Record summary:
Rfam assigns this 154-nucleotide RNA sequence from Malus domestica to the family "U12 minor spliceosomal RNA". A search with the family's covariance model found it, with a score of 87 bits. Taxonomically the source falls in Malus (Eukaryota, Streptophyta, Embryophyta, Rosales). Gene Ontology terms of the family: mRNA branch site recognition, U12 snRNP and pre-mRNA branch point binding. Rfam 15.1 lists 2,106 matches to the family in 1,170 species. The base pairs follow the family's consensus structure.
RNA sequence: UUGCCUUAAACUAAUGAGUAAGGAAAACAAAGCGAGUGGUGAGAGCCGCUCGCCGCGCAAAGCAUUUACAUGCGCAUGAAUUUAUGGAGGGGUUAUAGGCUGGCCGAGUGUUGACGCUGUUACUUCGCAGAACUCACUCGAGCGGGCCUCCCUA
Numbered sequence: 001u002u003g004c005c006u007u008a009a010a011c012u013a014a015u016g017a018g019u020a021a022g023g024a025a026a027a028c029a030a031a032g033c034g035a036g037u038g039g040u041g042a043g044a045g046c047c048g049c050u051c052g053c054c055g056c057g058c059a060a061a062g063c064a065u066u067u068a069c070a071u072g073c074g075c076a077u078g079a080a081u082u083u084a085u086g087g088a089g090g091g092g093u094u095a096u097a098g099g100c101u102g103g104c105c106g107a108g109u110g111u112u113g114a115c116g117c118u119g120u121u122a123c124u125u126c127g128c129a130g131a132a133c134u135c136a137c138u139c140g141a142g143c144g145g146g147c148c149u150c151c152c153u154a
Stems, first nucleotide, its partner, number of pairs: 004023005032053008055075005090153003097149005103143001105140002108137003117130004